Overview: The record is a 102-nucleotide RNA sequence from Rhododendron williamsianum, which matches "MIR396 microRNA precursor family" in Rfam. The family has 26 seed sequences and 744 matches in Rfam 15.1. Gene Ontology terms of the family: RISC complex and miRNA-mediated post-transcriptional gene silencing. The family's consensus secondary structure was predicted with WAR.
[Rfam]
RNA sequence: CUUCGUAUUUUUCCACAGCUUUCUUGAACUGCAUCCGAUCCGUCGCAAUUUCGAGGUGAUUUAAAAGUUACAGUUCAAUAAAGCUGUGGGAAGAUACGAAUA
Numbered sequence: 001c002u003u004c005g006u007a008u009u010u011u012u013c014c015a016c017a018g019c020u021u022u023c024u025u026g027a028a029c030u031g032c033a034u035c036c037g038a039u040c041c042g043u044c045g046c047a048a049u050u051u052c053g054a055g056g057u058g059a060u061u062u063a064a065a066a067g068u069u070a071c072a073g074u075u076c077a078a079u080a081a082a083g084c085u086g087u088g089g090g091a092a093g094a095u096a097c098g099a100a101u102a
Stems, first nucleotide, its partner, number of pairs: 003099005013089003017085006024078004029073003033069001